[Rfam]
RNA sequence: GGGGGCGAUCUGGCUUCGACGUCGGUUACAAACCCUAAGGUGCAUGUCGAGGACGCAACUUUGCCUCGUUAAUCAUGUUGUAAAUCUAUAGUUGCAAACGAUGCUAACUAUAACGCUAAAGACGUUGCUAUUGCUGCCUAAUCGGUAGUUAAUUUAGUAACGUUAGCGCUGCCUAAACAGCAGCCGGCGCCAUGAACUCCAUAGGCUUGUAUGUGGAGGUAGUGGUCAUAACUGACAAGCUCGUAGUCUAGCCCCUUCUGAGGCGAAAACUACUAAAAUCAAACAGAAUCGUCGGUCAAUUCCCUGUCAAUCGGAGAUGGAUCGAUUAAACUUAAAGAUUGUACUAAACAUGUAGUGCCAAAGGCAGCGGGCUUGCGGACGUGGGUUCGAUUCCCACCGCCUCCACCA
Numbered sequence: 001g002g003g004g005g006c007g008a009u010c011u012g013g014c015u016u017c018g019a020c021g022u023c024g025g026u027u028a029c030a031a032a033c034c035c036u037a038a039g040g041u042g043c044a045u046g047u048c049g050a051g052g053a054c055g056c057a058a059c060u061u062u063g064c065c066u067c068g069u070u071a072a073u074c075a076u077g078u079u080g081u082a083a084a085u086c087u088a089u090a091g092u093u094g095c096a097a098a099c100g101a102u103g104c105u106a107a108c109u110a111u112a113a114c115g116c117u118a119a120a121g122a123c124g125u126u127g128c129u130a131u132u133g134c135u136g137c138c139u140a141a142u143c144g145g146u147a148g149u150u151a152a153u154u155u156a157g158u159a160a161c162g163u164u165a166g167c168g169c170u171g172c173c174u175a176a177a178c179a180g181c182a183g184c185c186g187g188c189g190c191c192a193u194g195a196a197c198u199c200c201a202u203a204g205g206c207u208u209g210u211a212u213g214u215g216g217a218g219g220u221a222g223u224g225g226u227c228a229u230a231a232c233u234g235a236c237a238a239g240c241u242c243g244u245a246g247u248c249u250a251g252c253c254c255c256u257u258c259u260g261a262g263g264c265g266a267a268a269a270c271u272a273c274u275a276a277a278a279u280c281a282a283a284c285a286g287a288a289u290c291g292u293c294g295g296u297c298a299a300u301u302c303c304c305u306g307u308c309a310a311u312c313g314g315a316g317a318u319g320g321a322u323c324g325a326u327u328a329a330a331c332u333u334a335a336a337g338a339u340u341g342u343a344c345u346a347a348a349c350a351u352g353u354a355g356u357g358c359c360a361a362a363g364g365c366a367g368c369g370g371g372c373u374u375g376c377g378g379a380c381g382u383g384g385g386u387u388c389g390a391u392u393c394c395c396a397c398c399g400c401c402u403c404c405a406c407c408a
Stems, first nucleotide, its partner, number of pairs: 001404007020377003024373004034364003039359003043352005048068005055081005168184005190225004195220001197218006205240006243273005249267001257288001259286001291326007299318002301315003306344002310339003381397005
This 408-nucleotide RNA sequence from Candidatus Rickettsiella isopodorum belongs to the Rfam family "transfer-messenger RNA". The literature on the family includes a 1996 paper in RNA by Williams and Bartel, "Phylogenetic analysis of tmRNA secondary structure". Taxonomically the source falls in Rickettsiella (Bacteria, Pseudomonadati, Gammaproteobacteria, Coxiellaceae). The family is grouped with related families in Rfam's "tRNA clan".